Rfam assigns this 102-nucleotide RNA sequence from Fictibacillus aquaticus to the family "Purine riboswitch aptamer".
[Rfam]
RNA sequence: AUAAUUGCAUAUCACGUUCUUCAUAUAAUCUUGGGGAUAUGGCCCAAAAGUUUCUACCGGACUGCCGUAAAUGGUCUGACUAUGAAGGAAUGUUUUUAGCAG
Numbered sequence: 001a002u003a004a005u006u007g008c009a010u011a012u013c014a015c016g017u018u019c020u021u022c023a024u025a026u027a028a029u030c031u032u033g034g035g036g037a038u039a040u041g042g043c044c045c046a047a048a049a050g051u052u053u054c055u056a057c058c059g060g061a062c063u064g065c066c067g068u069a070a071a072u073g074g075u076c077u078g079a080c081u082a083u084g085a086a087g088g089a090a091u092g093u094u095u096u097u098a099g100c101a102g
Base pairs, nucleotide, nucleotide: 018088019087020086021085022084023083024082025081029049031047032046033045034044035043058078059077060076061075062074063073064072
Overview
The source organism's lineage runs through Bacteria, Bacillati, Bacilli, Caryophanales and Fictibacillus. It scores 89 bits against the family's covariance model. Pairs were carried over by alignment from the consensus structure, which is taken from published work.